[Rfam]
RNA sequence: AAGAUCUCCGAGCUAAUAAAAACUAAGAAUAUUGACUCAUAAACUAA
Numbered sequence: 001a002a003g004a005u006c007u008c009c010g011a012g013c014u015a016a017u018a019a020a021a022a023c024u025a026a027g028a029a030u031a032u033u034g035a036c037u038c039a040u041a042a043a044c045u046a047a
Stems, first nucleotide, its partner, number of pairs: 007041001010038003014034004